Shown here is a 77-nucleotide RNA sequence from Pristionchus pacificus, a member of the family "mir-9/mir-79 microRNA precursor family". On this family, see Lagos-Quintana et al., Science 2001: "Identification of novel genes coding for small expressed RNAs". Pairs were carried over by alignment from the consensus structure, which was predicted with RNAalifold.
RNA sequence: AUUAUCGUCUCUUUGGUUAUCUAGCUGUAUGAUUUGAAAUGUAAAUCAUAAAGCUGGAAAACUGAAGGAACGAUGUG
Dot-bracket structure: ..(((.((.(((((((((.(((((((.((((((...........)))))).))))))).))))))))).)).)))..
Numbered sequence: 001a002u003u004a005u006c007g008u009c010u011c012u013u014u015g016g017u018u019a020u021c022u023a024g025c026u027g028u029a030u031g032a033u034u035u036g037a038a039a040u041g042u043a044a045a046u047c048a049u050a051a052a053g054c055u056g057g058a059a060a061a062c063u064g065a066a067g068g069a070a071c072g073a074u075g076u077g
Stems, first nucleotide, its partner, number of pairs: 003075003007071002010068009020058007028050006